A member of the RNA family "c-di-GMP-II-GAG riboswitch aptamer" from Egibacter rhizosphaerae, 110 nucleotides long. Clan: c-di-GMP_II riboswitch clan.

RNA sequence: CGUGAACCGGGAAGCAGAGAUCCAGAGGGCACCGACGGUCGCCCAGGACCCGCCUCAUAGGCGGGCACCAGCCCUCUGGGGAGCGAAUGGCGAGCCCGAUCCGGUGGUUG
Numbered sequence: 001c002g003u004g005a006a007c008c009g010g011g012a013a014g015c016a017g018a019g020a021u022c023c024a025g026a027g028g029g030c031a032c033c034g035a036c037g038g039u040c041g042c043c044c045a046g047g048a049c050c051c052g053c054c055u056c057a058u059a060g061g062c063g064g065g066c067a068c069c070a071g072c073c074c075u076c077u078g079g080g081g082a083g084c085g086a087a088u089g090g091c092g093a094g095c096c097c098g099a100u101c102c103g104g105u106g107g108u109u110g
Base pairs, nucleotide, nucleotide: 001110002109006105007104008103009102010101011100014084015083022079023078024077025076026075027074028073029072037097038096039093040092041091042090043089
The source organism's lineage runs through Bacteria, Bacillati, Egibacterales, Egibacteraceae and Egibacter. A search with the family's covariance model found it, with a score of 52 bits.